Description
A member of the RNA family "PreQ1 (pre queuosine) riboswitch aptamer" from Amphibacillus marinus, 47 nucleotides long. From the family's description: This family is a bacterial riboswitch that binds to the metabolite preQ1, an intermediate in the biosynthesis of the modified nucleoside queuosine from GTP. One example of this riboswitch is located in the leader of the Bacillus subtilis ykvJKLM (queCDEF) operon which encodes four genes necessary for queuosine production. The base pairs follow the family's consensus structure. A reference for the family is Reader et al. (2004), "Identification of four genes necessary for biosynthesis of the modified nucleoside queuosine", J Biol Chem.
RNA sequence: UUCGGAGAGGUUCUUAGCUUAAACCCUCUAUAAAAAACUAAGGGUAU
Number, nucleotide and partner (000 for none) at each position: 001u000002u000003c000004g000005g000006a029007g028008a027009g026010g025011u000012u000013c000014u000015u040016a039017g000018c000019u000020u000021a000022a000023a000024c000025c010026c009027u008028c007029u006030a000031u000032a000033a000034a000035a000036a000037a000038c000039u016040a015041a000042g000043g000044g000045u000046a000047u000